[Rfam]
RNA sequence: CCGGCCCCGGGUUCAAGUAAUCCAGGAUAGGCUGUGGUCUGGCAGUCAGCCUGUUCUCGGUUACUUGGCCCUGGAGCUGG
Numbered sequence: 001c002c003g004g005c006c007c008c009g010g011g012u013u014c015a016a017g018u019a020a021u022c023c024a025g026g027a028u029a030g031g032c033u034g035u036g037g038u039c040u041g042g043c044a045g046u047c048a049g050c051c052u053g054u055u056c057u058c059g060g061u062u063a064c065u066u067g068g069c070c071c072u073g074g075a076g077c078u079g080g
Stems, first nucleotide, its partner, number of pairs: 002079004007074005014067009024057010
RNA: mir-26 microRNA precursor family
Organism: Corythaixoides concolor